[Rfam]
RNA sequence: CUAUCUGACAUCUCACAUUGUCGAGGAUAUAAACUAAAAAAAAGGAAAUAUCAUCGAUCUUGUGAGAUGUCAGAUUA
Numbered sequence: 001c002u003a004u005c006u007g008a009c010a011u012c013u014c015a016c017a018u019u020g021u022c023g024a025g026g027a028u029a030u031a032a033a034c035u036a037a038a039a040a041a042a043a044g045g046a047a048a049u050a051u052c053a054u055c056g057a058u059c060u061u062g063u064g065a066g067a068u069g070u071c072a073g074a075u076u077a
Stems, first nucleotide, its partner, number of pairs: 004074007012066006020058005026052005